[Rfam]
RNA sequence: GCACGGUGUCGGUGAUCGACCUCCUCCCCGAGAGCCGACAACGAAUGCAGCGUACCUCCUCCCGCGCUGCAUUUACAAUCAAGCCCGCCGCAUCUCCUCCCGCGGCGGGCUUUUUUU
Dot-bracket structure: ......(((.(((..((............))..))).)))..((((((((((............))))))))))......(((((((((((..........))))))))))).....
Overview
The family of this 117-nucleotide sequence from Borborobacter arsenicus is "Alphaproteobacterial ar14". Pairs were carried over by alignment from the consensus structure. Taxonomically the source falls in Borborobacter (Bacteria, Pseudomonadota, Alphaproteobacteria, Phyllobacteriaceae). Gene Ontology term of the family: biological process involved in symbiotic interaction.